The family of this 116-nucleotide sequence is "Plastid-psbA-1 3UTR RNA". The family's consensus secondary structure was predicted with LocARNA. A reference for the family is Richter et al. (2023), "Retrograde signaling in plants: A critical review focusing on the GUN pathway and beyond", Plant Commun. Plastid psbA-1 is a non-coding RNA (ncRNA) present in plastids. It was identified in inverted repeat sequences in the 3 prime untranslate region (3UTR) of photosystem II quinone-binding protein (psbA). It is one of the family's seed sequences.
RNA sequence: UUGAAGUUCCAUCUCUUAAUGGAUAAAGCUUUUCCGCUAACAUAUAGCCAUUUUUGAAGGAAGGAAAGCGAGAAAUACCCAAUAUCUUGCUAAUACAAGAUAUUGGGUAUUUCUUU
Numbered sequence: 001u002u003g004a005a006g007u008u009c010c011a012u013c014u015c016u017u018a019a020u021g022g023a024u025a026a027a028g029c030u031u032u033u034c035c036g037c038u039a040a041c042a043u044a045u046a047g048c049c050a051u052u053u054u055u056g057a058a059g060g061a062a063g064g065a066a067a068g069c070g071a072g073a074a075a076u077a078c079c080c081a082a083u084a085u086c087u088u089g090c091u092a093a094u095a096c097a098a099g100a101u102a103u104u105g106g107g108u109a110u111u112u113c114u115u116u
Stems, first nucleotide, its partner, number of pairs: 008023005064116002071114008080105003084101005
Dot-bracket structure: .......(((((......)))))........................................((.....((((((((.(((.(((((........))))).))).))))))))))